[Rfam]
RNA sequence: GCAACUCUGGAAAGCGCGCGUCGCUGCCGGCGCGCCACCCACGGUGCAAGCCGCUGGUCUGCGGCGAAGCUCUCAGGUUCCGGCAACAGAGGGGGAGGC
Numbered sequence: 001g002c003a004a005c006u007c008u009g010g011a012a013a014g015c016g017c018g019c020g021u022c023g024c025u026g027c028c029g030g031c032g033c034g035c036c037a038c039c040c041a042c043g044g045u046g047c048a049a050g051c052c053g054c055u056g057g058u059c060u061g062c063g064g065c066g067a068a069g070c071u072c073u074c075a076g077g078u079u080c081c082g083g084c085a086a087c088a089g090a091g092g093g094g095g096a097g098g099c
Stems, first nucleotide, its partner, number of pairs: 002094001005091005016035007037078003041073001044072001046070001050065005
Background: Glycine riboswitch aptamer: a 99-nucleotide sequence from Saccharopolyspora hordei. Rfam links the family to the GO term glycine biosynthetic process. The source organism's lineage runs through Bacteria, Actinomycetes, Pseudonocardiales, Pseudonocardiaceae and Saccharopolyspora.